[Rfam]
RNA sequence: AUACCAUCCAGAGAAGCGGAGGGACUGGCCCGAUGAUGCUUCAGCAACCUACUGUUAGAGUGUGGUGCUAAUUCCAGACAGAUGGAGA
Numbered sequence: 001a002u003a004c005c006a007u008c009c010a011g012a013g014a015a016g017c018g019g020a021g022g023g024a025c026u027g028g029c030c031c032g033a034u035g036a037u038g039c040u041u042c043a044g045c046a047a048c049c050u051a052c053u054g055u056u057a058g059a060g061u062g063u064g065g066u067g068c069u070a071a072u073u074c075c076a077g078a079c080a081g082a083u084g085g086a087g088a
Stems, first nucleotide, its partner, number of pairs: 002087001004085005013042005021031003025077004043069004048065002050062004073080001
The record is an 88-nucleotide RNA from Fusobacterium gonidiaformans, which matches "SAM riboswitch aptamer (S box leader)" in Rfam.